[Rfam]
RNA: flg-Rhizobiales RNA
Organism: Rugositalea oryzae
RNA sequence: CGAGCCGCUCGUUUGGGAGAACGGGAGGCUCACUCGACGGAUCACCGCCUGGGAGGGCGGGGUUCCGCCGCUUCAGGGGAGUUGCUCGAUGGAGAAUGCCGUUCUUAUCGGCCUGUCGCGCCAGACCGCGUUGC
Numbered sequence: 001c002g003a004g005c006c007g008c009u010c011g012u013u014u015g016g017g018a019g020a021a022c023g024g025g026a027g028g029c030u031c032a033c034u035c036g037a038c039g040g041a042u043c044a045c046c047g048c049c050u051g052g053g054a055g056g057g058c059g060g061g062g063u064u065c066c067g068c069c070g071c072u073u074c075a076g077g078g079g080a081g082u083u084g085c086u087c088g089a090u091g092g093a094g095a096a097u098g099c100c101g102u103u104c105u106u107a108u109c110g111g112c113c114u115g116u117c118g119c120g121c122c123a124g125a126c127c128g129c130g131u132u133g134c
Stems, first nucleotide, its partner, number of pairs: 002031005008025007035070002038067003046059005086111005092106005